Shown here is an 84-nucleotide RNA sequence from Abrus precatorius, a member of the family "Small nucleolar RNA snoR53Y". Rfam 15.1 lists 513 matches to the family in 230 species. Its family is annotated with nucleolus and RNA processing in the Gene Ontology. The family's RNA type in Rfam is C/D-box small nucleolar RNA. On this family, see Brown et al., RNA 2001: "Multiple snoRNA gene clusters from Arabidopsis". Clan: snoR53 clan. Pairs were carried over by alignment from the consensus structure, which was predicted with WAR. It scores 62 bits against the family's covariance model.

RNA sequence: GUUCCCAAUGAUGCCUUUUUAAAACCAUGCUAAUGCUGAUAAAAGAUGAUUGAUUUUUUCAGUUUAUUAUAUACUGAGGGAACU
Numbered sequence: 001g002u003u004c005c006c007a008a009u010g011a012u013g014c015c016u017u018u019u020u021a022a023a024a025c026c027a028u029g030c031u032a033a034u035g036c037u038g039a040u041a042a043a044a045g046a047u048g049a050u051u052g053a054u055u056u057u058u059u060c061a062g063u064u065u066a067u068u069a070u071a072u073a074c075u076g077a078g079g080g081a082a083c084u
Stems, first nucleotide, its partner, number of pairs: 001083005